[Rfam]
RNA sequence: UUUUGCAUUGGCUUUACGUGCCAUGAUGCUGUUGCCGACGGCAUGUAAAAGGUGGGUUUUACCCAGCCCUGUGCCUCCGUA
Numbered sequence: 001u002u003u004u005g006c007a008u009u010g011g012c013u014u015u016a017c018g019u020g021c022c023a024u025g026a027u028g029c030u031g032u033u034g035c036c037g038a039c040g041g042c043a044u045g046u047a048a049a050a051g052g053u054g055g056g057u058u059u060u061a062c063c064c065a066g067c068c069c070u071g072u073g074c075c076u077c078c079g080u081a
Stems, first nucleotide, its partner, number of pairs: 004043003009038001011036001013034001016032003020029002051078002054075001056074002061072002
The record is an 81-nucleotide RNA from Xenorhabdus cabanillasii, which matches "antisense RNA of dnaA mRNA" in Rfam. The literature on the family includes a 2013 paper in PLoS One by Dadzie et al., "Identification and characterization of a cis-encoded antisense RNA associated with the replication process of Salmonella enterica serovar Typhi". Gene Ontology term of the family: regulation of mRNA stability. A search with the family's covariance model found it, with a score of 61 bits. Taxonomically the source falls in Xenorhabdus (Bacteria, Gammaproteobacteria, Enterobacterales, Morganellaceae).